Background: A member of the RNA family "Nuclear RNase P" from Nyctibius grandis, 337 nucleotides long. It scores 157 bits against the family's covariance model.

RNA sequence: UCUGGGGGAAGCUCACCGCCGAGGCCACGCACGGGGUGCGCGUCACCCGCGGCCCCGCCUCGGGGAAGGUCUGAGGGAAGGGCCGCCCGCGGCUCUAGCAGAGCCCCGCCCGCGAGGGGCGGGUGAGCCACCAGCAAGGCGGGGGCACCGCGUGGGCACGGCCUGGGCAGGAGAAGCCGAGCGGGUUCCCGUGGGCGGGGUUUCACCCUCACGGAGCCCCGGCGGAUGCCCGUGGCCCCGCGGUGCUUUGAGACAGACUCACGGCCGGCCACGGUUGAGCCCAAUGGGUGAGGUGGGGCAGCGUCCCAUAACCCAAUUCAGACUACUCUCCCCCGGA
Numbered sequence: 001u002c003u004g005g006g007g008g009a010a011g012c013u014c015a016c017c018g019c020c021g022a023g024g025c026c027a028c029g030c031a032c033g034g035g036g037u038g039c040g041c042g043u044c045a046c047c048c049g050c051g052g053c054c055c056c057g058c059c060u061c062g063g064g065g066a067a068g069g070u071c072u073g074a075g076g077g078a079a080g081g082g083c084c085g086c087c088c089g090c091g092g093c094u095c096u097a098g099c100a101g102a103g104c105c106c107c108g109c110c111c112g113c114g115a116g117g118g119g120c121g122g123g124u125g126a127g128c129c130a131c132c133a134g135c136a137a138g139g140c141g142g143g144g145g146c147a148c149c150g151c152g153u154g155g156g157c158a159c160g161g162c163c164u165g166g167g168c169a170g171g172a173g174a175a176g177c178c179g180a181g182c183g184g185g186u187u188c189c190c191g192u193g194g195g196c197g198g199g200g201u202u203u204c205a206c207c208c209u210c211a212c213g214g215a216g217c218c219c220c221g222g223c224g225g226a227u228g229c230c231c232g233u234g235g236c237c238c239c240g241c242g243g244u245g246c247u248u249u250g251a252g253a254c255a256g257a258c259u260c261a262c263g264g265c266c267g268g269c270c271a272c273g274g275u276u277g278a279g280c281c282c283a284a285u286g287g288g289u290g291a292g293g294u295g296g297g298g299c300a301g302c303g304u305c306c307c308a309u310a311a312c313c314c315a316a317u318u319c320a321g322a323c324u325a326c327u328c329u330c331c332c333c334c335g336g337a
Stems, first nucleotide, its partner, number of pairs: 001337004007331003012292006020062005034048005071321005081266004091105005106122006123262005129256001145246008293309007

NCBI's taxonomy places the organism under Eukaryota, Chordata, Coelurosauria, Neognathae, Nyctibius. Rfam classes the family as a ribozyme.